[Rfam]
RNA sequence: GCGGGCUUGGAUUCAUGAUGCUGUGGGCCCGCAUCACAGCGCGUCAAGCGAGCGAUCACGGGGAUCUCCAGACGCUCGUCGGUACAGCCGCUGACUGCUUAAAGUAGGCCGUUGAGGGAAGCUCGCAUUGCUCUCAUCGCUCCGAAUUUCAUGUAGCAGUCGCGCCGCAUGCCGUGGAGGGGUGAGCUGUGUUGGCAGCUCAGAAGAUGCGGGACGCCG
Numbered sequence: 001g002c003g004g005g006c007u008u009g010g011a012u013u014c015a016u017g018a019u020g021c022u023g024u025g026g027g028c029c030c031g032c033a034u035c036a037c038a039g040c041g042c043g044u045c046a047a048g049c050g051a052g053c054g055a056u057c058a059c060g061g062g063g064a065u066c067u068c069c070a071g072a073c074g075c076u077c078g079u080c081g082g083u084a085c086a087g088c089c090g091c092u093g094a095c096u097g098c099u100u101a102a103a104g105u106a107g108g109c110c111g112u113u114g115a116g117g118g119a120a121g122c123u124c125g126c127a128u129u130g131c132u133c134u135c136a137u138c139g140c141u142c143c144g145a146a147u148u149u150c151a152u153g154u155a156g157c158a159g160u161c162g163c164g165c166c167g168c169a170u171g172c173c174g175u176g177g178a179g180g181g182g183u184g185a186g187c188u189g190u191g192u193u194g195g196c197a198g199c200u201c202a203g204a205a206g207a208u209g210c211g212g213g214a215c216g217c218c219g
Stems, first nucleotide, its partner, number of pairs: 001032007048079006067178004089164003093161007165212006183202006
The record is a 219-nucleotide sequence, which matches "PAGEV RNA" in Rfam. It is one of the family's seed sequences. It is annotated as a small RNA.